[Rfam]
RNA: MIR535 microRNA precursor family
RNA sequence: GCAAAUCUAUGACAACGAAGGAGAGCACGCUUGUCAAUAAUCAUGUCCCGUGCAUGAAUGUCGACUAGCGUGCUCUCUCUCCUUGUCAAGCAAUG
Numbered sequence: 001g002c003a004a005a006u007c008u009a010u011g012a013c014a015a016c017g018a019a020g021g022a023g024a025g026c027a028c029g030c031u032u033g034u035c036a037a038u039a040a041u042c043a044u045g046u047c048c049c050g051u052g053c054a055u056g057a058a059u060g061u062c063g064a065c066u067a068g069c070g071u072g073c074u075c076u077c078u079c080u081c082c083u084u085g086u087c088a089a090g091c092a093a094u095g
Stems, first nucleotide, its partner, number of pairs: 010088005017081001020078002023075001025073007033065002
Dot-bracket structure: .........(((((..(..((.(.(((((((.((.............................)).))))))).).))..)..))))).......